[Rfam]
RNA sequence: CCGAAACGGGCAGGCUACGAAGCGCGGACGUGCCACGGUCGCCGAUCCGCCGCGCUGAGCCACUGGCGAGACCGCGCCCAAAGCAU
Numbered sequence: 001c002c003g004a005a006a007c008g009g010g011c012a013g014g015c016u017a018c019g020a021a022g023c024g025c026g027g028a029c030g031u032g033c034c035a036c037g038g039u040c041g042c043c044g045a046u047c048c049g050c051c052g053c054g055c056u057g058a059g060c061c062a063c064u065g066g067c068g069a070g071a072c073c074g075c076g077c078c079c080a081a082a083g084c085a086u
Stems, first nucleotide, its partner, number of pairs: 003084001008079004013061003022055004027051001029049002037073002039069005
RNA: c-di-GMP-II-GAG riboswitch aptamer